[Rfam]
Rfam assigns this 137-nucleotide RNA from Flavonifractor sp. An10 to the family "Ribosomal protein L10 leader". The family's RNA type in Rfam is cis-regulatory leader. NCBI's taxonomy places the organism under Bacteria, Clostridia, Eubacteriales, Oscillospiraceae, Flavonifractor.
RNA sequence: GUAUACUAUCAGGCGUGUUCAAAGACAGCAGGUGGCGCCAGCCAUAAUUCCUGCCGAGAAUGCAGCCACAACGGAAUGAGAUUCUUUGUGCUGUUUUCGCGUGCUUUGAAUGCGAAAACGGCUUUUUUGUUGCGUCU
Numbered sequence: 001g002u003a004u005a006c007u008a009u010c011a012g013g014c015g016u017g018u019u020c021a022a023a024g025a026c027a028g029c030a031g032g033u034g035g036c037g038c039c040a041g042c043c044a045u046a047a048u049u050c051c052u053g054c055c056g057a058g059a060a061u062g063c064a065g066c067c068a069c070a071a072c073g074g075a076a077u078g079a080g081a082u083u084c085u086u087u088g089u090g091c092u093g094u095u096u097u098c099g100c101g102u103g104c105u106u107u108g109a110a111u112g113c114g115a116a117a118a119c120g121g122c123u124u125u126u127u128u129g130u131u132g133c134g135u136c137u
Stems, first nucleotide, its partner, number of pairs: 028054005034043003090122013